[Rfam]
The record is an 87-nucleotide RNA from Paenibacillus sp. GSMTC-2017, which matches "BsrC" in Rfam. The 301 nucleotide sequence from Kouji Nakamura has been trimmed to a highly conserved ~85 nucleotide long core to form this family. On this family, see Saito et al., Gene 2008: "Novel small RNA-encoding genes in the intergenic regions of Bacillus subtilis". The organism belongs to Paenibacillus, within Bacteria. The family has 29 seed sequences and 572 matches in Rfam 15.1. The family's RNA type in Rfam is small RNA. The family's consensus secondary structure was predicted with CMfinder.
RNA sequence: GUAUCCUAAAACAACGAAAGCCCUACCUCUCUUUCGUCCUUACGGUUCCGAGACCGCGCCAGUGUGAAUCAGAAUUACGUUAUGAAA
Number, nucleotide and partner (000 for none) at each position: 001g000002u000003a000004u000005c000006c000007u000008a000009a000010a000011a000012c000013a000014a000015c000016g000017a000018a000019a000020g000021c000022c000023c000024u000025a000026c000027c000028u000029c000030u000031c000032u000033u000034u067035c066036g065037u000038c000039c062040u061041u058042a000043c056044g055045g054046u053047u052048c000049c000050g000051a000052g047053a046054c045055c044056g043057c000058g041059c000060c000061a040062g039063u000064g000065u036066g035067a034068a000069u000070c000071a000072g000073a000074a000075u000076u000077a000078c000079g000080u000081u000082a000083u000084g000085a000086a000087a000